A member of the RNA family "Glutamine-II riboswitch aptamer" from Synechococcus sp. CC9311, 61 nucleotides long.
The family's consensus secondary structure is taken from published work.
It is one of the family's seed sequences.
Gene Ontology term of the family: glutamine binding.
[Rfam]
RNA sequence: CAUCGUUCACCUCGUUUUUGCGAGGCGCAGAUCGGCCCAAGCCAAGGAACGGGGACUUGGG
Numbered sequence: 001c002a003u004c005g006u007u008c009a010c011c012u013c014g015u016u017u018u019u020g021c022g023a024g025g026c027g028c029a030g031a032u033c034g035g036c037c038c039a040a041g042c043c044a045a046g047g048a049a050c051g052g053g054g055a056c057u058u059g060g061g
Stems, first nucleotide, its partner, number of pairs: 004051005010025005036061006042054002